[Rfam]
RNA: Group II catalytic intron D1-D4-3
Organism: Bacillus smithii
Nucleotides: 174
Base pairs, nucleotide, nucleotide: 001016003014004013005012006011028174031171032170036166041160042159045156046152047151048150049149063147064146065145066144067143068142074139075138076137079134080133081132082131083130084129087115088114089113090112093108094107095106096105
Number, partner (000 for none) and nucleotide at each position: 001016u002000g003014c004013g005012u006011g007000g008000u009000g010000a011006c012005a013004c014003g015000g016001a017000a018000u019000c020000c021000g022000a023000a024000g025000g026000a027000a028174g029000c030000g031171a032170g033000c034000g035000g036166c037000a038000a039000a040000c041160u042159u043000a044000g045156g046152g047151u048150c049149u050000c051000u052000c053000g054000g055000a056000a057000c058000a059000c060000g061000a062000a063147c064146u065145u066144c067143a068142u069000a070000g071000a072000a073000g074139g075138c076137u077000a078000g079134g080133u081132a082131a083130c084129a085000u086000u087115g088114g089113a090112u091000g092000a093108g094107u095106c096105u097000g098000c099000a100000a101000a102000a103000c104000a105096a106095g107094a108093u109000a110000a111000a112090g113089u114088c115087c116000a117000u118000a119000c120000u121000g122000c123000c124000g125000a126000a127000g128000a129084u130083g131082u132081u133080a134079c135000a136000g137076a138075g139074u140000a141000a142068a143067u144066g145065g146064a147063g148000c149049a150048g151047a152046u153000a154000g155000a156045u157000g158000g159042a160041g161000a162000g163000a164000a165000a166036g167000a168000c169000u170032c171031u172000a173000c174028u